RNA sequence: UUUCGUAAAAAGGGGGUCACAGCAGGAGCGUUAAAUGUCGCGGUCCCGAUCGAACCCACGUACUGAUGGGUUGUGAAUCCUGCU
Numbered sequence: 001u002u003u004c005g006u007a008a009a010a011a012g013g014g015g016g017u018c019a020c021a022g023c024a025g026g027a028g029c030g031u032u033a034a035a036u037g038u039c040g041c042g043g044u045c046c047c048g049a050u051c052g053a054a055c056c057c058a059c060g061u062a063c064u065g066a067u068g069g070g071u072u073g074u075g076a077a078u079c080c081u082g083c084u
Stems, first nucleotide, its partner, number of pairs: 013047006021084007028041003051073001053072006
A member of the RNA family "Mammalian CPEB3 ribozyme" from Zootermopsis nevadensis, 84 nucleotides long. Pairs were carried over by alignment from the consensus structure, which is taken from published work. Lineage of the source: Eukaryota > Eumetazoa > Bilateria > Termopsinae > Zootermopsis.